[Rfam]
RNA: sodF sRNA
RNA sequence: AGGCGCCUGCCCCUCGUGAUCGUCUUCUCACCUUUCACGGCGGCGGGGAGCCCGAGCACCACGAAGGCCCCCACGUGACACACGUGGGGGCCUUCG
Numbered sequence: 001a002g003g004c005g006c007c008u009g010c011c012c013c014u015c016g017u018g019a020u021c022g023u024c025u026u027c028u029c030a031c032c033u034u035u036c037a038c039g040g041c042g043g044c045g046g047g048g049a050g051c052c053c054g055a056g057c058a059c060c061a062c063g064a065a066g067g068c069c070c071c072c073a074c075g076u077g078a079c080a081c082a083c084g085u086g087g088g089g090g091c092c093u094u095c096g
Stems, first nucleotide, its partner, number of pairs: 002053002006047006016038004022032001062096016